[Rfam]
RNA sequence: AAUUCCACCGGGUCCACCGAUCGAGUGACCACGAGGUAAUCGCGCAGCGCGGUGCUGUGCCUGGCCUC
Numbered sequence: 001a002a003u004u005c006c007a008c009c010g011g012g013u014c015c016a017c018c019g020a021u022c023g024a025g026u027g028a029c030c031a032c033g034a035g036g037u038a039a040u041c042g043c044g045c046a047g048c049g050c051g052g053u054g055c056u057g058u059g060c061c062u063g064g065c066c067u068c
Base pairs, nucleotide, nucleotide: 004063008059011030012029013028015027016026017025035056036055037054038053040052041051042050043049044048